[Rfam]
RNA sequence: AGUGCAAUGAUGAGACGAAACACACAAGUGUGUUUGGGUAGUGGACGUUGCCUUAUGGUUUCGCCGUGAGCUCACAUUUUUAACGACUUCUCCUUCCACUGAGCACU
Numbered sequence: 001a002g003u004g005c006a007a008u009g010a011u012g013a014g015a016c017g018a019a020a021c022a023c024a025c026a027a028g029u030g031u032g033u034u035u036g037g038g039u040a041g042u043g044g045a046c047g048u049u050g051c052c053u054u055a056u057g058g059u060u061u062c063g064c065c066g067u068g069a070g071c072u073c074a075c076a077u078u079u080u081u082a083a084c085g086a087c088u089u090c091u092c093c094u095u096c097c098a099c100u101g102a103g104c105a106c107u
Stems, first nucleotide, its partner, number of pairs: 001107005
Rfam assigns this 107-nucleotide RNA sequence from Glycine soja to the family "Small nucleolar RNA Z152/R70/R12/". A search with the family's covariance model found it, with a score of 90 bits. The family's consensus secondary structure was predicted with PFOLD. Taxonomically the source falls in Glycine subgen. Soja (Eukaryota, Magnoliopsida, Mesangiospermae, fabids). Rfam classes the family as a C/D-box small nucleolar RNA. Rfam links the family to the GO terms RNA processing and nucleolus.